RNA: mir-9261 microRNA precursor family
RNA sequence: AACAAUUUGUCCUGUGUCCUGCGGUGUUUUAAAAAAGUCCCGAUUCCAAAAAUUGGGACUUUUUUAAAACGCCGCAGGACGCGGGACAAAUUGUUAA
Number, nucleotide and partner (000 for none) at each position: 001a095002a094003c093004a092005a091006u090007u089008u088009g087010u086011c085012c084013u083014g082015u081016g080017u079018c078019c077020u076021g075022c074023g073024g072025u071026g070027u069028u068029u067030u066031a065032a064033a063034a062035a061036a060037g059038u000039c000040c000041c000042g000043a000044u000045u000046c000047c000048a000049a000050a000051a000052a000053u000054u000055g000056g000057g000058a000059c037060u036061u035062u034063u033064u032065u031066a030067a029068a028069a027070c026071g025072c024073c023074g022075c021076a020077g019078g018079a017080c016081g015082c014083g013084g012085g011086a010087c009088a008089a007090a006091u005092u004093g003094u002095u001096a000097a000